[Rfam]
RNA: nhaA-I RNA
RNA sequence: GGGUGUACGCGCCAGCAGGCGCGGCAGGUUCAUGCGCUGGUCGGGCCGCCACG
Numbered sequence: 001g002g003g004u005g006u007a008c009g010c011g012c013c014a015g016c017a018g019g020c021g022c023g024g025c026a027g028g029u030u031c032a033u034g035c036g037c038u039g040g041u042c043g044g045g046c047c048g049c050c051a052c053g
Base pairs, nucleotide, nucleotide: 005025006024008023009022010021011020012019035053036052038051039050040049041048